Overview
The record is an 87-nucleotide RNA sequence from Coregonus sp. 'balchen', which matches "mir-135 microRNA precursor family" in Rfam. It scores 71 bits against the family's covariance model. A reference for the family is Lagos-Quintana et al. (2002), "Identification of tissue-specific microRNAs from mouse", Curr Biol.
RNA sequence: CCACGCCUGUGUUCUAUGGCUUUCUAUUCCUAUGUGAUUUCUCUCUGGUAUGUCAUGUAGGGUUUAAAGCCAUUGGGUACAGAGUGA
Numbered sequence: 001c002c003a004c005g006c007c008u009g010u011g012u013u014c015u016a017u018g019g020c021u022u023u024c025u026a027u028u029c030c031u032a033u034g035u036g037a038u039u040u041c042u043c044u045c046u047g048g049u050a051u052g053u054c055a056u057g058u059a060g061g062g063u064u065u066a067a068a069g070c071c072a073u074u075g076g077g078u079a080c081a082g083a084g085u086g087a
Stems, first nucleotide, its partner, number of pairs: 002086003007082008016073008026064001028062010
Rfam links the family to the GO terms RISC complex and gene silencing by miRNA.